[Rfam]
RNA sequence: AUCCAUCAUUUGCCUUAAAGAUACAUUAUGUAUCAAGGUAAAUCGGGAACGGAGGAACCAGUUCUGGGGCGAAUUUGCUAGAAAGAGAAAGCUAGAGUCAAAAGGAUAACAAUAAUCAAACUUUAUCCUUUCGACUUGGUACUUGAUCUUUUUCCAGAAGGACAUCUCUCAGUCCUAGCCCGUCAGCUAACUUCGUCGGCAUUGAGAGGAGAUUGA
Dot-bracket structure: .(((.........................................)))((((((....((....))(((.....(((.............................................................................)))..((((........))))...))).........))))))....................